[Rfam]
RNA: Purine riboswitch aptamer
Organism: Bacillus sp. NRRL B-14911
RNA sequence: ACUGAAUAUGUCGUAUUACGUCGUAUAAUAUCAGGGAUAUGGCCUGAAAGUUUCUACCGAGCUGCCGUAAAUAGCUUGACUACGAGGUAAAUGUUUAUAGGG
Numbered sequence: 001a002c003u004g005a006a007u008a009u010g011u012c013g014u015a016u017u018a019c020g021u022c023g024u025a026u027a028a029u030a031u032c033a034g035g036g037a038u039a040u041g042g043c044c045u046g047a048a049a050g051u052u053u054c055u056a057c058c059g060a061g062c063u064g065c066c067g068u069a070a071a072u073a074g075c076u077u078g079a080c081u082a083c084g085a086g087g088u089a090a091a092u093g094u095u096u097a098u099a100g101g102g
Base pairs, nucleotide, nucleotide: 018088019087021085022084023083024082025081029049031047032046033045034044035043058078059077060076061075062074063073064072